Rfam assigns this 51-nucleotide RNA sequence from Jannaschia seohaensis to the family "SAM/SAH riboswitch aptamer". Taxonomically the source falls in Jannaschia (Bacteria, Pseudomonadati, Alphaproteobacteria, Rhodobacterales). On this family, see Weickhmann et al., Nucleic Acids Res 2019: "The structure of the SAM/SAH-binding riboswitch". Gene Ontology terms of the family: S-adenosylmethionine metabolic process and regulation of gene expression.

RNA sequence: ACCGCGCUCCAACGGCUUCCUGACGGAGCGUCCGCAUCUUUUACCGGAGCA
Numbered sequence: 001a002c003c004g005c006g007c008u009c010c011a012a013c014g015g016c017u018u019c020c021u022g023a024c025g026g027a028g029c030g031u032c033c034g035c036a037u038c039u040u041u042u043a044c045c046g047g048a049g050c051a
Stems, first nucleotide, its partner, number of pairs: 004031007013022002015050003019047002